[Rfam]
RNA: Streptococcus sRNA Spd-sr37
RNA sequence: CAAAUACACUGAUGGUCAAAGCUCAUGGAUUUGCAGGUUUUUUGGCCUGCAAUCAAAUGAAGCCU
Numbered sequence: 001c002a003a004a005u006a007c008a009c010u011g012a013u014g015g016u017c018a019a020a021g022c023u024c025a026u027g028g029a030u031u032u033g034c035a036g037g038u039u040u041u042u043u044g045g046c047c048u049g050c051a052a053u054c055a056a057a058u059g060a061a062g063c064c065u
Stems, first nucleotide, its partner, number of pairs: 019065001021063003032051006